Rfam assigns this 97-nucleotide sequence from Digitaria exilis to the family "Small nucleolar RNA Z152/R70/R12/". Rfam 15.1 lists 604 matches to the family in 220 species. Taxonomically the source falls in Digitaria (Eukaryota, Streptophyta, Panicoideae, Paniceae). It is annotated as a C/D-box small nucleolar RNA. It scores 65 bits against the family's covariance model.
RNA sequence: AAUGCGAUGAUGAUUCAUAAAAGGUUGAGGCAGUGGUUGCCUUUUGGUCACCGUGAGCCGUCAAACCAAAAAACGACUUCUCUUUCCACUGAGCAUU
Numbered sequence: 001a002a003u004g005c006g007a008u009g010a011u012g013a014u015u016c017a018u019a020a021a022a023g024g025u026u027g028a029g030g031c032a033g034u035g036g037u038u039g040c041c042u043u044u045u046g047g048u049c050a051c052c053g054u055g056a057g058c059c060g061u062c063a064a065a066c067c068a069a070a071a072a073a074c075g076a077c078u079u080c081u082c083u084u085u086c087c088a089c090u091g092a093g094c095a096u097u
Stems, first nucleotide, its partner, number of pairs: 001097005